Notes
A member of the RNA family "Small nucleolar RNA SNORD66" from Amphiprion percula, 72 nucleotides long. Pairs were carried over by alignment from the consensus structure, which was predicted with RNAalifold. Rfam 15.1 lists 1,346 matches to the family in 614 species. snoRNA HBII-142 is part of the C/D family of snoRNAs. It is the human orthologue of the mouse MBII-142 snoRNA and is predicted to guide 2'O-ribose methylation of small 18S rRNA at residue C1272. Lineage of the source: Eukaryota > Vertebrata > Euteleostomi > Pomacentridae > Amphiprion. Gene Ontology terms of the family: RNA processing and nucleolus.
RNA sequence: CUUUUGUGAAGCUUAUUUGUUCAAUUUUCCUGAGCCACGGAAUCCUAUUUAUUGCUUUGAGGAACAGAGAAG
Numbered sequence: 001c002u003u004u005u006g007u008g009a010a011g012c013u014u015a016u017u018u019g020u021u022c023a024a025u026u027u028u029c030c031u032g033a034g035c036c037a038c039g040g041a042a043u044c045c046u047a048u049u050u051a052u053u054g055c056u057u058u059g060a061g062g063a064a065c066a067g068a069g070a071a072g
Stems, first nucleotide, its partner, number of pairs: 001072004